[Rfam]
Rfam assigns this 62-nucleotide RNA from Fischerella thermalis to the family "Nitrogen stress-induced RNA 1".
It scores 52 bits against the family's covariance model.
Pairs were carried over by alignment from the consensus structure.
A reference for the family is Ionescu et al. (2010), "Heterocyst-specific transcription of NsiR1, a non-coding RNA encoded in a tandem array of direct repeats in cyanobacteria", J Mol Biol.
NCBI's taxonomy places the organism under Bacteria, Bacillati, Nostocales, Fischerella, Fischerella thermalis.
RNA sequence: UGGUAGAUGCACCUUGAUCUUUAACUCCCCUGCUUGGCUAAUACACGCUGGGGGGUUUUUUC
Numbered sequence: 001u002g003g004u005a006g007a008u009g010c011a012c013c014u015u016g017a018u019c020u021u022u023a024a025c026u027c028c029c030c031u032g033c034u035u036g037g038c039u040a041a042u043a044c045a046c047g048c049u050g051g052g053g054g055g056u057u058u059u060u061u062c
Stems, first nucleotide, its partner, number of pairs: 002013003027054006034047001037044001